[Rfam]
RNA sequence: AGUAAAAAUAAGCUUAGUUUCCGGAAACGUCCGGAAAGCGGGGGAACCACUCUUCAGGGGCGAAUCAUUCUACACGAAUGUAGGGAACCAUCUAUCCCGAGUCCGACAGCUAACCUCGUCAGCGUAUGGAUGGGUCGGA
Numbered sequence: 001a002g003u004a005a006a007a008a009u010a011a012g013c014u015u016a017g018u019u020u021c022c023g024g025a026a027a028c029g030u031c032c033g034g035a036a037a038g039c040g041g042g043g044g045a046a047c048c049a050c051u052c053u054u055c056a057g058g059g060g061c062g063a064a065u066c067a068u069u070c071u072a073c074a075c076g077a078a079u080g081u082a083g084g085g086a087a088c089c090a091u092c093u094a095u096c097c098c099g100a101g102u103c104c105g106a107c108a109g110c111u112a113a114c115c116u117c118g119u120c121a122g123c124g125u126a127u128g129g130a131u132g133g134g135u136c137g138g139a
Stems, first nucleotide, its partner, number of pairs: 012123003018037008038119006048057001058104003066080004083098004
RNA: c-di-AMP riboswitch aptamer (ydaO/yuaA leader)